[Rfam]
RNA sequence: AUACUUACCUGGACGGGGUCAAUGGACGAUCAAUAGGGUUCAUGGCCUAGGCUUGUGACCUCCAUUGCACUUGGAAGGGGUGCAUGCCUAAGGUCUCCCCAAGUGGGAGAGCCUACAUCAUAAUUUGUGGUAGUGGGGGCCUGCGUUCGCGCGGCCCCGUC
Numbered sequence: 001a002u003a004c005u006u007a008c009c010u011g012g013a014c015g016g017g018g019u020c021a022a023u024g025g026a027c028g029a030u031c032a033a034u035a036g037g038g039u040u041c042a043u044g045g046c047c048u049a050g051g052c053u054u055g056u057g058a059c060c061u062c063c064a065u066u067g068c069a070c071u072u073g074g075a076a077g078g079g080g081u082g083c084a085u086g087c088c089u090a091a092g093g094u095c096u097c098c099c100c101a102a103g104u105g106g107g108a109g110a111g112c113c114u115a116c117a118u119c120a121u122a123a124u125u126u127g128u129g130g131u132a133g134u135g136g137g138g139g140c141c142u143g144c145g146u147u148c149g150c151g152c153g154g155c156c157c158c159g160u161c
Stems, first nucleotide, its partner, number of pairs: 012119002015116001016048006023042005049089003053086001055083003059079003063074001091114003094110003098106002135160001137158003142153004